[Rfam]
A member of the RNA family "Group II catalytic intron D1-D4-6" from Desulforamulus profundi, 235 nucleotides long. It scores 155 bits against the family's covariance model. Rfam describes the family as follows. Group II introns are found in rRNA, tRNA and mRNA of organelles in fungi, plants and protists, and also in mRNA in bacteria. The organism belongs to Desulforamulus, within Bacteria. Pairs were carried over by alignment from the consensus structure.
RNA sequence: GGAAUCCCACCGGGUAGGGUUUAGCCAGCCGCCCGUAGCUAGUCUUGGAACCGAUAGGGUAACCUAAAGGUUUAAGCGUAGACAAGCAAGUUAGCGGGCCGAAAGCAUAAGCUGAAGGAACUGAGCCCCGAAAUACCUAUAAAAUUGGGAAGGCUGAUGCUGUUGCCAGAGCAGAAAGCAACAUUUCGGCAAUCAUUAUGGCGAGAUUGACGGAACUUCCCGGGGUCGGAGACCU
Numbered sequence: 001g002g003a004a005u006c007c008c009a010c011c012g013g014g015u016a017g018g019g020u021u022u023a024g025c026c027a028g029c030c031g032c033c034c035g036u037a038g039c040u041a042g043u044c045u046u047g048g049a050a051c052c053g054a055u056a057g058g059g060u061a062a063c064c065u066a067a068a069g070g071u072u073u074a075a076g077c078g079u080a081g082a083c084a085a086g087c088a089a090g091u092u093a094g095c096g097g098g099c100c101g102a103a104a105g106c107a108u109a110a111g112c113u114g115a116a117g118g119a120a121c122u123g124a125g126c127c128c129c130g131a132a133a134u135a136c137c138u139a140u141a142a143a144a145u146u147g148g149g150a151a152g153g154c155u156g157a158u159g160c161u162g163u164u165g166c167c168a169g170a171g172c173a174g175a176a177a178g179c180a181a182c183a184u185u186u187c188g189g190c191a192a193u194c195a196u197u198a199u200g201g202c203g204a205g206a207u208u209g210a211c212g213g214a215a216c217u218u219c220c221c222g223g224g225g226u227c228g229g230a231g232a233c234c235u
Base pairs, nucleotide, nucleotide: 011035012034013033014032018030019029020028021027022204024202025201038087039086042083043082044081045080046078047077048073049072050071051070052069055066056065057064058063122229123227125226126225127224128223129222130221147220149219150218151217152216153179154178155177158173159172160171161170184215185214186213187212188211190209191208192207193206194205